[Rfam]
Record summary
The family of this 124-nucleotide sequence from Paenirhizobium selenitireducens is "Rhizobiales sRNA Atu_C8". For this family Rfam cites "Deep sequencing uncovers numerous small RNAs on all four replicons of the plant pathogen Agrobacterium tumefaciens" (Wilms et al., RNA Biol, 2012).
RNA sequence: GAACAAUUCGCAGAUCCUUAUCGUGGUGGGAAAGCGCAUGGGCAGGGUGGUGUAACCAUCCGGCGAUAGCCACCCAUGCGCAGACAAACAGGCUCCUCAAAGGGGCCUUUUUUUAUGGCCGAAA
Number, nucleotide and partner (000 for none) at each position: 001g000002a000003a000004c000005a000006a000007u028008u000009c026010g000011c000012a000013g000014a000015u000016c000017c000018u000019u000020a000021u000022c000023g000024u000025g000026g009027u000028g007029g120030g119031a000032a000033a000034g081035c080036g079037c078038a077039u076040g075041g074042g073043c000044a000045g061046g060047g059048u058049g057050g056051u000052g000053u000054a000055a000056c050057c049058a048059u047060c046061c045062g000063g070064c069065g000066a000067u000068a000069g064070c063071c000072a000073c042074c041075c040076a039077u038078g037079c036080g035081c034082a000083g000084a000085c000086a000087a000088a109089c000090a108091g107092g106093c105094u104095c103096c102097u000098c000099a000100a000101a000102g096103g095104g094105g093106c092107c091108u090109u088110u000111u000112u000113u000114u000115a000116u000117g000118g000119c030120c029121g000122a000123a000124a000
Notes
The organism belongs to Paenirhizobium selenitireducens, within Bacteria.